Glycine riboswitch aptamer: a 111-nucleotide sequence from Ellagibacter isourolithinifaciens. Rfam's curators write: This family represents the bacterial glycine riboswitch.
[Rfam]
RNA sequence: GAAGGGGCCUCUGGAGAAUCCCAGGCAAGCUGGGUGCCGAAGGGGCAAGGCGAAACACCUGGUCACAGGCUUUUCGUUGAAACUCUCAGGCAAAAGGACAGAGAAAAGCUU
Numbered sequence: 001g002a003a004g005g006g007g008c009c010u011c012u013g014g015a016g017a018a019u020c021c022c023a024g025g026c027a028a029g030c031u032g033g034g035u036g037c038c039g040a041a042g043g044g045g046c047a048a049g050g051c052g053a054a055a056c057a058c059c060u061g062g063u064c065a066c067a068g069g070c071u072u073u074u075c076g077u078u079g080a081a082a083c084u085c086u087c088a089g090g091c092a093a094a095a096g097g098a099c100a101g102a103g104a105a106a107a108g109c110u111u
Stems, first nucleotide, its partner, number of pairs: 009103005020034004036091003039087002043085003049078007